[Rfam]
Shown here is a 160-nucleotide RNA from Romboutsia weinsteinii, a member of the family "PyrR binding site". Rfam classes the family as a cis-regulatory element. Its family is annotated with pyrimidine nucleobase transport and pyrimidine nucleobase biosynthetic process in the Gene Ontology.

RNA sequence: AGUACCUUUAACUCAGUUCAGAGAAACUGGCAAGGUUUUCGGAAGAAAAUUAUAAAAGAUAGCAUCUUGAAGUAAAAUUUAAAUUAUUAAAUAAUUUAAAUUUGAAAAACUUUUAUGGAUACUACUUAAAACCCCUUGCUAAGCAGGGGGUUUUCUUUUU
Numbered sequence: 001a002g003u004a005c006c007u008u009u010a011a012c013u014c015a016g017u018u019c020a021g022a023g024a025a026a027c028u029g030g031c032a033a034g035g036u037u038u039u040c041g042g043a044a045g046a047a048a049a050u051u052a053u054a055a056a057a058g059a060u061a062g063c064a065u066c067u068u069g070a071a072g073u074a075a076a077a078u079u080u081a082a083a084u085u086a087u088u089a090a091a092u093a094a095u096u097u098a099a100a101u102u103u104g105a106a107a108a109a110c111u112u113u114u115a116u117g118g119a120u121a122c123u124a125c126u127u128a129a130a131a132c133c134c135c136u137u138g139c140u141a142a143g144c145a146g147g148g149g150g151u152u153u154u155c156u157u158u159u160u
Stems, first nucleotide, its partner, number of pairs: 004036005013030006073105001075103012128154012
The match comes from Rfam's covariance-model search (54 bits).